[Rfam]
RNA: wcaG RNA
RNA sequence: UGGUGCCCGCAAGAUAAGGCACAAUAAAAAUUCUUGCUGGUGCGGAUGGGACUCUCUCCCGCCUGGUUUCCAAUUUCCAGUCAAAGAAUUGGUGGCGAGCCUGAGU
Numbered sequence: 001u002g003g004u005g006c007c008c009g010c011a012a013g014a015u016a017a018g019g020c021a022c023a024a025u026a027a028a029a030a031u032u033c034u035u036g037c038u039g040g041u042g043c044g045g046a047u048g049g050g051a052c053u054c055u056c057u058c059c060c061g062c063c064u065g066g067u068u069u070c071c072a073a074u075u076u077c078c079a080g081u082c083a084a085a086g087a088a089u090u091g092g093u094g095g096c097g098a099g100c101c102u103g104a105g106u
Stems, first nucleotide, its partner, number of pairs: 009037006016031001047061005063080004070092006